[Rfam]
RNA sequence: CCCAAGCCCGUGCUCUUUCCACUAAGCCACACUGAGAAGUGAAGUGACUUGCCCAAACGGAGAAGCAGCGUGGCUCAGUGGAAAGAGCAUGGGCUUUGGA
Dot-bracket structure: .((.((((((.((((((((..((.((((((.......................................)))))).))..)))))))).))))))..)).
RNA: mir-130 microRNA precursor family